[Rfam]
Nucleotides: 074
Stems, first nucleotide, its partner, number of pairs: 001065004
Number, partner (000 for none) and nucleotide at each position: 001065g002064a003063g004062a005000a006000a007000u008000g009000a010000g011000g012000a013000c014000a015000c016000a017000g018000u019000a020000u021000u022000u023000g024000u025000c026000u027000u028000a029000c030000u031000u032000c033000u034000g035000u036000a037000a038000u039000g040000a041000a042000g043000a044000c045000u046000u047000c048000a049000g050000a051000u052000c053000c054000a055000a056000c057000u058000c059000u060000g061000a062004u063003c064002u065001c066000a067000c068000a069000c070000u071000g072000a073000c074000a
Small nucleolar RNA SNORD19: a 74-nucleotide RNA from Calyptomena viridis.
The pairing is the family consensus, mapped onto this sequence.
A reference for the family is Huttenhofer et al. (2001), "RNomics: an experimental approach that identifies 201 candidates for novel, small, non-messenger RNAs in mouse", EMBO J.
Rfam 15.1 lists 1,431 matches to the family in 609 species.